[Rfam]
The family of this 96-nucleotide sequence from Tripterygium wilfordii is "Plastid-ycf2 5UTR RNA". For this family Rfam cites "Retrograde signaling in plants: A critical review focusing on the GUN pathway and beyond" (Richter et al., Plant Commun, 2023). A search with the family's covariance model found it, with a score of 68 bits. Rfam describes the family as follows. Plastid ycf2 is a non-coding RNA (ncRNA) recognised in plastids. It was found in the prime untranslated region (5UTR) of ycf2 genes, it presents a tRNA-like motif which suggests it can be involved in mRNA maturation, particularly involved in defining the precise 5' end of the transcript. Rfam classes the family as a cis-regulatory element. The organism belongs to Tripterygium, within Eukaryota.

RNA sequence: GUGCAUCCAGUAGGAAUUGAACCUGCUAAUUCGCCAAUUAUGAGUGCUAAUUCGCCAAUUAUGAGUUGAGCGCUUCAACCAUUCAGUCAUGGAUGC
Numbered sequence: 001g002u003g004c005a006u007c008c009a010g011u012a013g014g015a016a017u018u019g020a021a022c023c024u025g026c027u028a029a030u031u032c033g034c035c036a037a038u039u040a041u042g043a044g045u046g047c048u049a050a051u052u053c054g055c056c057a058a059u060u061a062u063g064a065g066u067u068g069a070g071c072g073c074u075u076c077a078a079c080c081a082u083u084c085a086g087u088c089a090u091g092g093a094u095g096c
Stems, first nucleotide, its partner, number of pairs: 003096006010047003061090003065087006072080001